[Rfam]
RNA sequence: AUUCACAACAAACCUACAGAUCUGUGUCCUGCGAUCCUGGCCACGGAUAAGUUGCUUGCUCGUCAAGCGACGGUUCUGUGUGUCGGUUGAUUGCUCGACAGUUCGACGACCAAGGAGCCAUCACUACGCCUUUCACGGCGUAGGAAAUGGUGUCAAUUUCCGGUCGACAGAUCUCAGAGCGAAGGCCAGCUCCGGUGCUUCACUCCGGUCUUGAGCUCCCUUUCUCUUCUCCCCUCUGGGGAGGGAGAUUGGUGAGCUCGGCCGGAUGGCCUGGUUGCUGGCGGCGUCAUAUUCCCAGUCCCUUUGCCGAGGCCGUUGGCCGGUGAGGUUAGGGAAAAACCAUGACAUGCCAACAUUA
Numbered sequence: 001a002u003u004c005a006c007a008a009c010a011a012a013c014c015u016a017c018a019g020a021u022c023u024g025u026g027u028c029c030u031g032c033g034a035u036c037c038u039g040g041c042c043a044c045g046g047a048u049a050a051g052u053u054g055c056u057u058g059c060u061c062g063u064c065a066a067g068c069g070a071c072g073g074u075u076c077u078g079u080g081u082g083u084c085g086g087u088u089g090a091u092u093g094c095u096c097g098a099c100a101g102u103u104c105g106a107c108g109a110c111c112a113a114g115g116a117g118c119c120a121u122c123a124c125u126a127c128g129c130c131u132u133u134c135a136c137g138g139c140g141u142a143g144g145a146a147a148u149g150g151u152g153u154c155a156a157u158u159u160c161c162g163g164u165c166g167a168c169a170g171a172u173c174u175c176a177g178a179g180c181g182a183a184g185g186c187c188a189g190c191u192c193c194g195g196u197g198c199u200u201c202a203c204u205c206c207g208g209u210c211u212u213g214a215g216c217u218c219c220c221u222u223u224c225u226c227u228u229c230u231c232c233c234c235u236c237u238g239g240g241g242a243g244g245g246a247g248a249u250u251g252g253u254g255a256g257c258u259c260g261g262c263c264g265g266a267u268g269g270c271c272u273g274g275u276u277g278c279u280g281g282c283g284g285c286g287u288c289a290u291a292u293u294c295c296c297a298g299u300c301c302c303u304u305u306g307c308c309g310a311g312g313c314c315g316u317u318g319g320c321c322g323g324u325g326a327g328g329u330u331a332g333g334g335a336a337a338a339a340c341c342a343u344g345a346c347a348u349g350c351c352a353a354c355a356u357u358a
Stems, first nucleotide, its partner, number of pairs: 018174008026099003031094001033092004037086005042080002045077003051071003055067004107166005114154002117151005185278002192274002194271002207263004213259006219252002283351003286346005299335005306329003311321004
Shown here is a 358-nucleotide sequence from Paecilomyces variotii, a member of the family "A. fumigatus sRNA Afu_309". Rfam classes the family as a small RNA. The match comes from Rfam's covariance-model search (227 bits).